[Rfam]
Shown here is a 134-nucleotide RNA from Oryctolagus cuniculus, a member of the family "Small nucleolar RNA SNORA1".
RNA sequence: GGCCUCAUUCUAGAUGAGAAUGGGCACUGGUGACUGUGGUAUCCAAAAUUAUCAUUAUGGCUAAACUGAGACACAGGUCAUGCUUCUAUCACAGUAAACGAACUGCAGUGGUGACAAGAAGACCUCUAACAUUU
Numbered sequence: 001g002g003c004c005u006c007a008u009u010c011u012a013g014a015u016g017a018g019a020a021u022g023g024g025c026a027c028u029g030g031u032g033a034c035u036g037u038g039g040u041a042u043c044c045a046a047a048a049u050u051a052u053c054a055u056u057a058u059g060g061c062u063a064a065a066c067u068g069a070g071a072c073a074c075a076g077g078u079c080a081u082g083c084u085u086c087u088a089u090c091a092c093a094g095u096a097a098a099c100g101a102a103c104u105g106c107a108g109u110g111g112u113g114a115c116a117a118g119a120a121g122a123c124c125u126c127u128a129a130c131a132u133u134u
Base pairs, nucleotide, nucleotide: 002061003060004059007056021045022044023043024042026040027039073127075125076124077123087113088112089111090110091109092108
The match comes from Rfam's covariance-model search (113 bits). From the family's description: ACA1 is a member of the H/ACA class of snoRNA that guide the sites of modification of uridines to pseudouridines.